[Rfam]
RNA: mir-2774 microRNA precursor family
Organism: Bombyx mori
RNA sequence: ACAACAUUCGGAUCGUUUGUCUACUUUGCAAUAUCACCCACUGGGUGAAAGAUCUUCCUUUCGUCGU
Numbered sequence: 001a002c003a004a005c006a007u008u009c010g011g012a013u014c015g016u017u018u019g020u021c022u023a024c025u026u027u028g029c030a031a032u033a034u035c036a037c038c039c040a041c042u043g044g045g046u047g048a049a050a051g052a053u054c055u056u057c058c059u060u061u062c063g064u065c066g067u
Stems, first nucleotide, its partner, number of pairs: 004064002010058003015053003020049001022047005028041001